A member of the RNA family "Bacterial RNase P class A" from Pontixanthobacter aestiaquae, 407 nucleotides long.
Rfam links the family to the GO terms dimeric ribonuclease P complex, ribonuclease P activity and tRNA processing.
RNA sequence: CCAGGGGGCCGGGCAGCCGCGUUAUCUUAGGAUACCGAGGAAAGUCCGGGCUCCACGAAACAAGGGUGGCGGGUAACGCCCGCCGGGCUUCAAUAUCGCAAGAUGGCGAGGUCAAGGGACAGUGCCACAGAGAGCAAACCGCCUCUCUUAGAGGUAAGGGUGAAAGGGUGCGGUAAGAGCGCACCGCGUGACCGGCAACGGAAACGGCAUGGUAAACCCCACCCGGAGCAAGGCCAAAUAGGGGCGGCGCGCUGAGUAAUCAGCAGAUGCGUUUCGCAUCGACCGCCCGGGUUGGCUGCUUGAGCUGCGAAGCAAUCCGUAGCCUAGAGGAAUGGCUGCCCUUGCGGAUCGGGUCCUUCGGGAAACCACCCGCAAGACAGAACCCGGCUUACAGGCUCCCUGGUACU
Numbered sequence: 001c002c003a004g005g006g007g008g009c010c011g012g013g014c015a016g017c018c019g020c021g022u023u024a025u026c027u028u029a030g031g032a033u034a035c036c037g038a039g040g041a042a043a044g045u046c047c048g049g050g051c052u053c054c055a056c057g058a059a060a061c062a063a064g065g066g067u068g069g070c071g072g073g074u075a076a077c078g079c080c081c082g083c084c085g086g087g088c089u090u091c092a093a094u095a096u097c098g099c100a101a102g103a104u105g106g107c108g109a110g111g112u113c114a115a116g117g118g119a120c121a122g123u124g125c126c127a128c129a130g131a132g133a134g135c136a137a138a139c140c141g142c143c144u145c146u147c148u149u150a151g152a153g154g155u156a157a158g159g160g161u162g163a164a165a166g167g168g169u170g171c172g173g174u175a176a177g178a179g180c181g182c183a184c185c186g187c188g189u190g191a192c193c194g195g196c197a198a199c200g201g202a203a204a205c206g207g208c209a210u211g212g213u214a215a216a217c218c219c220c221a222c223c224c225g226g227a228g229c230a231a232g233g234c235c236a237a238a239u240a241g242g243g244g245c246g247g248c249g250c251g252c253u254g255a256g257u258a259a260u261c262a263g264c265a266g267a268u269g270c271g272u273u274u275c276g277c278a279u280c281g282a283c284c285g286c287c288c289g290g291g292u293u294g295g296c297u298g299c300u301u302g303a304g305c306u307g308c309g310a311a312g313c314a315a316u317c318c319g320u321a322g323c324c325u326a327g328a329g330g331a332a333u334g335g336c337u338g339c340c341c342u343u344g345c346g347g348a349u350c351g352g353g354u355c356c357u358u359c360g361g362g363a364a365a366c367c368a369c370c371c372g373c374a375a376g377a378c379a380g381a382a383c384c385c386g387g388c389u390u391a392c393a394g395g396c397u398c399c400c401u402g403g404u405a406c407u
Stems, first nucleotide, its partner, number of pairs: 001403010011392001012340007020037002023034004042390003046387005051228004060274001062272001064224005069083005084116001086113006117219002122217002124213003139159002141155006167185006186208001187206003192201003232297004242288006266280005304323006311316001